[Rfam]
RNA sequence: GGUCUGCGAAGGCGAUGGUUUGCGUAAUCGCUCAUCACCUUCUACCUCCCUGUUGGACUUAGGCCGGGCCUCGUGCCCGGCUUUUUUU
Numbered sequence: 001g002g003u004c005u006g007c008g009a010a011g012g013c014g015a016u017g018g019u020u021u022g023c024g025u026a027a028u029c030g031c032u033c034a035u036c037a038c039c040u041u042c043u044a045c046c047u048c049c050c051u052g053u054u055g056g057a058c059u060u061a062g063g064c065c066g067g068g069c070c071u072c073g074u075g076c077c078c079g080g081c082u083u084u085u086u087u088u
Stems, first nucleotide, its partner, number of pairs: 001039003062082008
RNA: Singlet oxygen resistance RNA X